Small nucleolar RNA SNORD70: an 89-nucleotide sequence from Ornithorhynchus anatinus. snoRNA HBII-234 belongs to the C/D family of snoRNAs. It is the human orthologue of the mouse MBII-234 and is predicted to guide 2'O-ribose methylation of the small 18S rRNA on position A512. It is hosted, together with HBII-95, by the core C/D box snoRNA protein encoding gene NOP5/NOP58. The family's RNA type in Rfam is C/D-box small nucleolar RNA. The literature on the family includes a 2001 paper in EMBO J by Huttenhofer et al., "RNomics: an experimental approach that identifies 201 candidates for novel, small, non-messenger RNAs in mouse".
[Rfam]
RNA sequence: CUCUUUGUUGUCAAUGAUGCAUUCAUGUUGAAACUGAAUCCAAGUGAUUUAACUGAACAAUUCGUCACUACCACUGAGACAACACAAAA
Numbered sequence: 001c002u003c004u005u006u007g008u009u010g011u012c013a014a015u016g017a018u019g020c021a022u023u024c025a026u027g028u029u030g031a032a033a034c035u036g037a038a039u040c041c042a043a044g045u046g047a048u049u050u051a052a053c054u055g056a057a058c059a060a061u062u063c064g065u066c067a068c069u070a071c072c073a074c075u076g077a078g079a080c081a082a083c084a085c086a087a088a089a
Base pairs, nucleotide, nucleotide: 002088004086006084007083008082009081010080011079012078